[Rfam]
RNA sequence: AUCGUCAUCGCUCUGAAGCUGGAUCUCCUAAAGCACAAGCUAUGGGGACCAGACUAGUGUCUUAAAGACACUCGGGUAUUAUGGGAAACUGUAAUAUCUCCUGUUGGAAAGGAGUCUGUCGACAGGU
Number, nucleotide and partner (000 for none) at each position: 001a000002u000003c000004g000005u000006c000007a000008u000009c000010g115011c114012u113013c112014u111015g000016a000017a000018g000019c052020u051021g050022g049023a000024u048025c047026u046027c045028c044029u000030a000031a000032a041033g040034c039035a000036c000037a000038a000039g034040c033041u032042a000043u000044g028045g027046g026047g025048a024049c022050c021051a020052g019053a000054c000055u000056a000057g071058u070059g069060u068061c067062u000063u000064a000065a000066a000067g061068a060069c059070a058071c057072u000073c000074g099075g098076g097077u096078a095079u094080u093081a092082u091083g090084g089085g000086a000087a000088a000089c084090u083091g082092u081093a080094a079095u078096a077097u076098c075099u074100c107101c106102u000103g000104u000105u000106g101107g100108a000109a000110a000111g014112g013113a012114g011115u010116c000117u000118g000119u000120c000121g000122a000123c000124a000125g000126g000127u000